[Rfam]
RNA sequence: CCCUCCGAAGUUUCCCUCAGGAUAGCUAGCACUCUCGCACACCCCCCACCACACGCAGUUUUAUCCGGUAAAGCGAAUGAUUAGAGUUCUUGGGGCCAAAACGAUCUCAACCUAUUCUCAAACUUUAAAUGGGUAAGAAGCCCGGCUCACUGUCAUGGAGCCAGGCGUGGAAUGCGAGUGCCUAGUGGGCCACUUUUGGUAAGCAGAACUGGCGCUGCGCGAUGAACUGAACGCCAGUUUAAGGCACCCGAUGCCGACGCUCAUCAGACCCCAGAAAAGGUGUUGGUUGAUAUAGACAGCAGGACGGUGGCCAUGGAAGUCGGAAUCUGCUAAGGAGUGUGUAACAACUCACCUGCCCAAUCAACUAGCCCUGAAAAUGGAUGGCGUUGGAGCGUCGGGCCCAUACCUGGCCUUCGCCGGCAGUCAGAAGCGCGUGCGCGGAGAGAGGGGACGGGAGCCCUGAGGGCGGGGUUUUUUCUUCCCCACCCCCUGCACCCCCGUGGAUGUCACACCGCGACGAGUGGGAGGGCCGCUGCGGUGAGCCUUGAAGCCUAGGGCGUGGGCCCGGGUGGAGCCACCACAGGUGCAGAU
Numbered sequence: 001c002c003c004u005c006c007g008a009a010g011u012u013u014c015c016c017u018c019a020g021g022a023u024a025g026c027u028a029g030c031a032c033u034c035u036c037g038c039a040c041a042c043c044c045c046c047c048a049c050c051a052c053a054c055g056c057a058g059u060u061u062u063a064u065c066c067g068g069u070a071a072a073g074c075g076a077a078u079g080a081u082u083a084g085a086g087u088u089c090u091u092g093g094g095g096c097c098a099a100a101a102c103g104a105u106c107u108c109a110a111c112c113u114a115u116u117c118u119c120a121a122a123c124u125u126u127a128a129a130u131g132g133g134u135a136a137g138a139a140g141c142c143c144g145g146c147u148c149a150c151u152g153u154c155a156u157g158g159a160g161c162c163a164g165g166c167g168u169g170g171a172a173u174g175c176g177a178g179u180g181c182c183u184a185g186u187g188g189g190c191c192a193c194u195u196u197u198g199g200u201a202a203g204c205a206g207a208a209c210u211g212g213c214g215c216u217g218c219g220c221g222a223u224g225a226a227c228u229g230a231a232c233g234c235c236a237g238u239u240u241a242a243g244g245c246a247c248c249c250g251a252u253g254c255c256g257a258c259g260c261u262c263a264u265c266a267g268a269c270c271c272c273a274g275a276a277a278a279g280g281u282g283u284u285g286g287u288u289g290a291u292a293u294a295g296a297c298a299g300c301a302g303g304a305c306g307g308u309g310g311c312c313a314u315g316g317a318a319g320u321c322g323g324a325a326u327c328u329g330c331u332a333a334g335g336a337g338u339g340u341g342u343a344a345c346a347a348c349u350c351a352c353c354u355g356c357c358c359a360a361u362c363a364a365c366u367a368g369c370c371c372u373g374a375a376a377a378u379g380g381a382u383g384g385c386g387u388u389g390g391a392g393c394g395u396c397g398g399g400c401c402c403a404u405a406c407c408u409g410g411c412c413u414u415c416g417c418c419g420g421c422a423g424u425c426a427g428a429a430g431c432g433c434g435u436g437c438g439c440g441g442a443g444a445g446a447g448g449g450g451a452c453g454g455g456a457g458c459c460c461u462g463a464g465g466g467c468g469g470g471g472u473u474u475u476u477u478c479u480u481c482c483c484c485a486c487c488c489c490c491u492g493c494a495c496c497c498c499c500g501u502g503g504a505u506g507u508c509a510c511a512c513c514g515c516g517a518c519g520a521g522u523g524g525g526a527g528g529g530c531c532g533c534u535g536c537g538g539u540g541a542g543c544c545u546u547g548a549a550g551c552c553u554a555g556g557g558c559g560u561g562g563g564c565c566c567g568g569g570u571g572g573a574g575c576c577a578c579c580a581c582a583g584g585u586g587c588a589g590a591u
Stems, first nucleotide, its partner, number of pairs: 001529006011024001013022003029181005059138008071126001072124002078120003083115001085113002090110006097103001140166003144162005189213004194208005218229002233411005239405001243401003252398001254397001258394003278372003282369010299356005305329003311323002330334001335350001339348002412519001414517004419513002531586001533583003537579004542575002550570002556565003
Source information
The record is a 591-nucleotide part of an RNA from Galemys pyrenaicus, which matches "Eukaryotic large subunit ribosomal RNA" in Rfam. The family's consensus secondary structure is taken from published work. The organism belongs to Galemys, within Eukaryota.